[Rfam]
RNA: SAM-I/IV (S-adenosyl methionine) riboswitch aptamer
RNA sequence: UCUCAGCAUCAAGAGAGUGGGCUGACGCCCAUCGCCAACCUGCCUGCCCGGGCAAGGUGGUGCUUCCUUCGGUGACGGAGGGAGGAUGCGGCCGAACCGGCAACCAAACGGGACACA
Numbered sequence: 001u002c003u004c005a006g007c008a009u010c011a012a013g014a015g016a017g018u019g020g021g022c023u024g025a026c027g028c029c030c031a032u033c034g035c036c037a038a039c040c041u042g043c044c045u046g047c048c049c050g051g052g053c054a055a056g057g058u059g060g061u062g063c064u065u066c067c068u069u070c071g072g073u074g075a076c077g078g079a080g081g082g083a084g085g086a087u088g089c090g091g092c093c094g095a096a097c098c099g100g101c102a103a104c105c106a107a108a109c110g111g112g113a114c115a116c117a
Stems, first nucleotide, its partner, number of pairs: 006089005015033001017032005034061003039057003042053003047112004091101004